[Rfam]
RNA sequence: AUACUUACCUGGACGGGGUCAAUGGGCGAUCAUGAACACCCAUGGCCUAGGUUGGUGACCAUCAUUGCACUUUGAAGGGGUGCCCGCCUAAGGUCGGCCCAAGUGGUCGAGCCUACGUCAUAAUUUGUUGCUGAGGGGGCCUGCGUUCGCGCGGCCCCUGC
Numbered sequence: 001a002u003a004c005u006u007a008c009c010u011g012g013a014c015g016g017g018g019u020c021a022a023u024g025g026g027c028g029a030u031c032a033u034g035a036a037c038a039c040c041c042a043u044g045g046c047c048u049a050g051g052u053u054g055g056u057g058a059c060c061a062u063c064a065u066u067g068c069a070c071u072u073u074g075a076a077g078g079g080g081u082g083c084c085c086g087c088c089u090a091a092g093g094u095c096g097g098c099c100c101a102a103g104u105g106g107u108c109g110a111g112c113c114u115a116c117g118u119c120a121u122a123a124u125u126u127g128u129u130g131c132u133g134a135g136g137g138g139g140c141c142u143g144c145g146u147u148c149g150c151g152c153g154g155c156c157c158c159u160g161c
Stems, first nucleotide, its partner, number of pairs: 012119004016048006023042004049089003053086001055083003059079002062075002091114003094110003098106002135159004142153004

The family of this 161-nucleotide RNA from Solanum lycopersicum is "U1 spliceosomal RNA".
For this family Rfam cites "Mechanism of 5' splice site transfer for human spliceosome activation" (Charenton et al., Science, 2019).
The organism belongs to Solanum subgen. Lycopersicon, within Eukaryota.
The sequence is in the family's curated seed alignment.